Annotation: The record is a 200-nucleotide RNA sequence, which matches "c-di-AMP riboswitch aptamer (ydaO/yuaA leader)" in Rfam. Its family is annotated with regulation of gene expression and cyclic-di-AMP binding in the Gene Ontology.

RNA sequence: AGUCCGGCCCUGCCACCAGGCAUCCGGAGCCGGGGACCCACACGUACCACCGGGGUGAAUCGGCCGGUACGGCACACGGCGGGAGAUGCCUCGGGGCAGGAGCCUCCAGGACCCCUCCCGCAGCCGCACUGGCCGUAGGGCAAGCCUUCCGUCAUGCCCGAACCCGACAGCUAACCCGGUAGGCGGUCCACGGAAGGAGU
Numbered sequence: 001a002g003u004c005c006g007g008c009c010c011u012g013c014c015a016c017c018a019g020g021c022a023u024c025c026g027g028a029g030c031c032g033g034g035g036a037c038c039c040a041c042a043c044g045u046a047c048c049a050c051c052g053g054g055g056u057g058a059a060u061c062g063g064c065c066g067g068u069a070c071g072g073c074a075c076a077c078g079g080c081g082g083g084a085g086a087u088g089c090c091u092c093g094g095g096g097c098a099g100g101a102g103c104c105u106c107c108a109g110g111a112c113c114c115c116u117c118c119c120g121c122a123g124c125c126g127c128a129c130u131g132g133c134c135g136u137a138g139g140g141c142a143a144g145c146c147u148u149c150c151g152u153c154a155u156g157c158c159c160g161a162a163c164c165c166g167a168c169a170g171c172u173a174a175c176c177c178g179g180u181a182g183g184c185g186g187u188c189c190a191c192g193g194a195a196g197g198a199g200u
Stems, first nucleotide, its partner, number of pairs: 003028005029180006039052001053165003061135008138159004